[Rfam]
RNA sequence: UUCGCUGUUUGGCACACUUGAGCGAAAGCCAAGAACGCAAAGCCUCCUGUCUGACGCCUGCCACCAGCAGGGAAGAUAGCGGGGUUGUGUUC
Numbered sequence: 001u002u003c004g005c006u007g008u009u010u011g012g013c014a015c016a017c018u019u020g021a022g023c024g025a026a027a028g029c030c031a032a033g034a035a036c037g038c039a040a041a042g043c044c045u046c047c048u049g050u051c052u053g054a055c056g057c058c059u060g061c062c063a064c065c066a067g068c069a070g071g072g073a074a075g076a077u078a079g080c081g082g083g084g085u086u087g088u089g090u091u092c
Stems, first nucleotide, its partner, number of pairs: 012038002017033004022029002041086004046082002049077003057071004
c-di-GMP-I riboswitch aptamer: a 92-nucleotide sequence from Rhodoferax antarcticus. The organism belongs to Rhodoferax antarcticus, within Bacteria.